Rfam assigns this 67-nucleotide RNA from Bagarius yarrelli to the family "Selenocysteine insertion sequence 1".
RNA sequence: GUCGGUUAAUGAGGACCUGCACUAAAAGCCCUCUGAGGACAGGGCAGGUCUGAUGCGCUCCUCCGGU
Numbered sequence: 001g002u003c004g005g006u007u008a009a010u011g012a013g014g015a016c017c018u019g020c021a022c023u024a025a026a027a028g029c030c031c032u033c034u035g036a037g038g039a040c041a042g043g044g045c046a047g048g049u050c051u052g053a054u055g056c057g058c059u060c061c062u063c064c065g066g067u
Stems, first nucleotide, its partner, number of pairs: 001067005014050007022042002029038002
Dot-bracket structure: (((((........(((((((.((.....((......))..)).)))))))............)))))
Description:
Rfam classes the family as a cis-regulatory element. The source organism's lineage runs through Eukaryota, Metazoa, Vertebrata, Sisoridae and Bagarius. The match comes from Rfam's covariance-model search (37 bits). About the family: The incorporation of selenocysteine into a protein sequence is directed by an in-frame UGA codon (usually a stop codon) within the coding region of the mRNA. Selenoprotein mRNAs contain a conserved secondary structure in the 3' UTR that is required for the distinction of UGA stop from UGA selenocysteine. The selenocysteine insertion sequence (SECIS) is around 60 nt in length and adopts a hairpin structure which is sufficiently well-defined and conserved to act as a computational screen for selenoprotein genes.